RNA sequence: UGCUAUGAUGGUGUAAUUUGCGUCUGACUUCAUGCAUAGGGACAGUUGCCUGCUGUCACAUCCUAGCAUGGAGGGUUGAUGAAAAACAUUUCUGAGCA
Number, nucleotide and partner (000 for none) at each position: 001u098002g097003c096004u000005a000006u000007g000008a000009u000010g000011g000012u000013g000014u000015a000016a000017u000018u000019u000020g000021c081022g080023u079024c078025u000026g000027a000028c000029u000030u071031c070032a069033u068034g067035c000036a000037u000038a000039g063040g062041g057042a056043c055044a054045g053046u000047u000048g000049c000050c000051u000052g000053c045054u044055g043056u042057c041058a000059c000060a000061u000062c040063c039064u000065a000066g000067c034068a033069u032070g031071g030072a000073g000074g000075g000076u000077u000078g024079a023080u022081g021082a000083a000084a000085a000086a000087c000088a000089u000090u000091u000092c000093u000094g000095a000096g003097c002098a001
RNA: Small nucleolar RNA SNORD16